Rfam assigns this 77-nucleotide sequence from Cavia porcellus to the family "Small nucleolar RNA SNORD83". The base pairs follow the family's consensus structure, which was predicted with PFOLD. Gene Ontology terms of the family: nucleolus and RNA processing. It scores 83 bits against the family's covariance model. The family's RNA type in Rfam is C/D-box small nucleolar RNA.

[Rfam]
RNA sequence: GCCACAUGAUGUUCUGAUCUGAGACGUGAGCGCUCUGCGCAGUGCUGACCCUGAUCUAUCACCCUGGACUGAUGGCU
Numbered sequence: 001g002c003c004a005c006a007u008g009a010u011g012u013u014c015u016g017a018u019c020u021g022a023g024a025c026g027u028g029a030g031c032g033c034u035c036u037g038c039g040c041a042g043u044g045c046u047g048a049c050c051c052u053g054a055u056c057u058a059u060c061a062c063c064c065u066g067g068a069c070u071g072a073u074g075g076c077u
Base pairs, nucleotide, nucleotide: 001076002075003074004073030040031039032038033037